[Rfam]
RNA sequence: AAGCGGGGACGACCCCGCAAUUCCAUGCAUAUCCACCCGGGGACGGCCCCG
Numbered sequence: 001a002a003g004c005g006g007g008g009a010c011g012a013c014c015c016c017g018c019a020a021u022u023c024c025a026u027g028c029a030u031a032u033c034c035a036c037c038c039g040g041g042g043a044c045g046g047c048c049c050c051g
Stems, first nucleotide, its partner, number of pairs: 003018006038051005

Guanidine-II riboswitch aptamer (mini-ykkC): a 51-nucleotide sequence from Marilutibacter alkalisoli.
The family has 72 seed sequences and 1,589 matches in Rfam 15.1.
The match comes from Rfam's covariance-model search (43 bits).
Lineage of the source: Bacteria > Pseudomonadota > Gammaproteobacteria > Lysobacterales > Marilutibacter.